[Rfam]
RNA sequence: CCUUCGCUGAUGAGUAUCAGCUUGACUUUCGUUCUCCUGAGUUUGCUGAAGCCACGUUUAUUGAUCUGAGGAGG
Numbered sequence: 001c002c003u004u005c006g007c008u009g010a011u012g013a014g015u016a017u018c019a020g021c022u023u024g025a026c027u028u029u030c031g032u033u034c035u036c037c038u039g040a041g042u043u044u045g046c047u048g049a050a051g052c053c054a055c056g057u058u059u060a061u062u063g064a065u066c067u068g069a070g071g072a073g074g
Base pairs, nucleotide, nucleotide: 001074002073003072005070
RNA: Small nucleolar RNA SNORD59